[Rfam]
RNA: mir-965 microRNA precursor family
Organism: Cronartium quercuum
RNA sequence: UUUCCUAGGGGAAAAAUUUUGACCUUAUGAAUUAUCAGUGGGCCAGACAGAGAAGGCUUCUUGGCCAUAAGGUCAAAACUUUUCCCCUAGGAAA
Numbered sequence: 001u002u003u004c005c006u007a008g009g010g011g012a013a014a015a016a017u018u019u020u021g022a023c024c025u026u027a028u029g030a031a032u033u034a035u036c037a038g039u040g041g042g043c044c045a046g047a048c049a050g051a052g053a054a055g056g057c058u059u060c061u062u063g064g065c066c067a068u069a070a071g072g073u074c075a076a077a078a079c080u081u082u083u084c085c086c087c088u089a090g091g092a093a094a
Stems, first nucleotide, its partner, number of pairs: 003092005009086003013082002017078005024071006